[Rfam]
RNA sequence: AACAGAGUAGAUUCGGGCGAGUAUGGAGCUGUAAAAUACGGCUCUCAGUGCCGCAGUUACGGGGAGUUGAACUGCGGACGAAUACGAAAGUUGCUGUGCCCGUUUCGCAUCCCGCUGUU
Numbered sequence: 001a002a003c004a005g006a007g008u009a010g011a012u013u014c015g016g017g018c019g020a021g022u023a024u025g026g027a028g029c030u031g032u033a034a035a036a037u038a039c040g041g042c043u044c045u046c047a048g049u050g051c052c053g054c055a056g057u058u059a060c061g062g063g064g065a066g067u068u069g070a071a072c073u074g075c076g077g078a079c080g081a082a083u084a085c086g087a088a089a090g091u092u093g094c095u096g097u098g099c100c101c102g103u104u105u106c107g108c109a110u111c112c113c114g115c116u117g118u119u
Stems, first nucleotide, its partner, number of pairs: 001119005010106002014102006020095003048079002051077008062112003066108001084091002
Rfam assigns this 119-nucleotide RNA sequence from Candidatus Apopatosoma intestinale to the family "THF (Tetrahydrofolate) riboswitch aptamer". Pairs were carried over by alignment from the consensus structure, which is taken from published work. Tetrahydrofolate (THF) riboswitch was first reported for Ames et al. as an RNA motif in 5' untranslated (5'-UTR)regions of folate transport and biosynthesis genes in Firmicutes genomes. NCBI's taxonomy places the organism under Bacteria, Bacillati, Bacillota, Eubacteriales, Candidatus Apopatosoma.